[Rfam]
RNA sequence: AUCCGCCCCUCACGUGGCGAUAUCUUGGUUAACUCCCCCAGGUCGGAAACGAAGCAAGGGUAGCCGGGCUCUAUCGGGUGCGUGGGGGGCGCUUUCU
Number, nucleotide and partner (000 for none) at each position: 001a000002u000003c000004c091005g090006c089007c088008c087009c086010u085011c084012a083013c082014g081015u078016g000017g000018c076019g075020a074021u073022a072023u000024c068025u067026u066027g065028g064029u063030u062031a000032a000033c000034u000035c060036c059037c058038c000039c000040a000041g000042g000043u052044c051045g050046g000047a000048a000049a000050c045051g044052a043053a000054g000055c000056a000057a000058g037059g036060g035061u000062a030063g029064c028065c027066g026067g025068g024069c000070u000071c000072u022073a021074u020075c019076g018077g000078g015079u000080g000081c014082g013083u012084g011085g010086g009087g008088g007089g006090c005091g004092c000093u000094u000095u000096c000097u000